[Rfam]
RNA: Streptomyces sRNA 4677
RNA sequence: GGCUACACAGCCGUCGGCGAACAGCCCACAAAGGACGACGGAUCGGGCAGCCCGUACGCGGUGACCUUGCUGGAGAAGCACCUCGGUUAACUCACAGGGGUGAACCUCAUCGAUCACCCAAACGGCCCCUGAACAGGCGAUCUAGGCUCGCACCACAACAUCAAAUCGACGGCCCUCGGCUGGGACUGGCAUCCCAACCGAGGGCCUGACCAGCAAGGAAGGAUCAGCUUCCUC
Number, nucleotide and partner (000 for none) at each position: 001g000002g000003c000004u000005a000006c000007a000008c213009a000010g211011c000012c000013g000014u000015c000016g082017g081018c000019g079020a000021a000022c000023a000024g000025c000026c000027c000028a000029c000030a000031a000032a000033g000034g000035a000036c000037g000038a000039c000040g000041g000042a000043u000044c000045g000046g000047g000048c000049a000050g000051c000052c000053c000054g000055u000056a000057c000058g000059c000060g000061g000062u000063g000064a000065c000066c000067u000068u000069g000070c000071u000072g000073g000074a000075g000076a000077a000078g000079c019080a000081c017082c016083u000084c000085g000086g000087u000088u103089a000090a101091c100092u099093c098094a000095c000096a000097g000098g093099g092100g091101u090102g000103a088104a000105c000106c000107u000108c000109a000110u000111c000112g000113a000114u000115c000116a000117c000118c145119c000120a000121a000122a000123c000124g000125g000126c000127c000128c000129c000130u000131g000132a000133a000134c000135a000136g000137g000138c000139g000140a000141u000142c000143u000144a000145g118146g000147c000148u000149c000150g000151c000152a000153c000154c000155a000156c000157a000158a000159c000160a000161u000162c000163a000164a000165a000166u000167c000168g000169a000170c000171g206172g205173c204174c203175c202176u000177c200178g199179g198180c000181u000182g195183g194184g193185a192186c000187u000188g000189g000190c000191a000192u185193c184194c183195c182196a000197a000198c179199c178200g177201a000202g175203g174204g173205c172206c171207u000208g000209a000210c000211c010212a000213g008214c000215a000216a000217g232218g231219a230220a229221g228222g000223a000224u000225c000226a000227g000228c221229u220230u219231c218232c217233u000234c000